[Rfam]
RNA sequence: CCUUUGGAGUGUUAAGACCACUUGAGUAGCUAGAAAUAGCAAAAGAGAACACGAUGAACAAGGAA
Numbered sequence: 001c002c003u004u005u006g007g008a009g010u011g012u013u014a015a016g017a018c019c020a021c022u023u024g025a026g027u028a029g030c031u032a033g034a035a036a037u038a039g040c041a042a043a044a045g046a047g048a049a050c051a052c053g054a055u056g057a058a059c060a061a062g063g064a065a
Base pairs, nucleotide, nucleotide: 001063002062003061004060009052010051011050012049013048021047022046023045029040030039031038

Rfam assigns this 65-nucleotide RNA to the family "RAGATH-18 RNA". The family's consensus secondary structure is taken from published work. It is annotated as a small RNA. Actinobacteria, Firmicutes, Fusobacteria, Thermotogae (1 example).